Shown here is a 35-nucleotide RNA, a member of the family "DUF805b RNA".
RNA sequence: GAUGAGGAUGCCGAAAAUCAUAAAGAGAGUAGGCA
Numbered sequence: 001g002a003u004g005a006g007g008a009u010g011c012c013g014a015a016a017a018u019c020a021u022a023a024a025g026a027g028a029g030u031a032g033g034c035a
Base pairs, nucleotide, nucleotide: 002021003020004019005018010034011033012032
By type it is a cis-regulatory element. Rfam's curators put it in the seed alignment.